[Rfam]
RNA sequence: UGUGAAAUAAAACUCUGAAGCCUUUAAACCUAAGUAAACGGUUGUUUAAACAAUCACUUUAUAUGGAUUAAUGGCCGUGACAUUAACAGGUGCCACCGGGUGUAACGCAGAAAUGCUUAUGCCUCCCGACUGGAAAGGUGUUUUUACUGACAUGCA
Number, nucleotide and partner (000 for none) at each position: 001u000002g000003u150004g000005a000006a000007a000008u000009a000010a000011a142012a141013c140014u000015c138016u137017g000018a000019a000020g075021c074022c073023u000024u071025u070026a069027a068028a000029c066030c065031u000032a000033a000034g062035u061036a060037a059038a000039c000040g000041g000042u000043u000044g000045u000046u000047u000048a000049a000050a000051c000052a000053a000054u000055c000056a000057c000058u000059u037060u036061a035062u034063a000064u000065g030066g029067a000068u027069u026070a025071a024072u000073g022074g021075c020076c000077g096078u095079g094080a000081c092082a091083u090084u000085a000086a000087c000088a000089g000090g083091u082092g081093c000094c079095a078096c077097c000098g124099g123100g122101u121102g120103u119104a118105a117106c000107g116108c115109a114110g000111a000112a000113a000114u109115g108116c107117u105118u104119a103120u102121g101122c100123c099124u098125c133126c132127c000128g000129a000130c000131u000132g126133g125134a000135a000136a000137g016138g015139u000140g013141u012142u011143u000144u000145u000146a000147c000148u000149g000150a003151c000152a000153u000154g000155c000156a000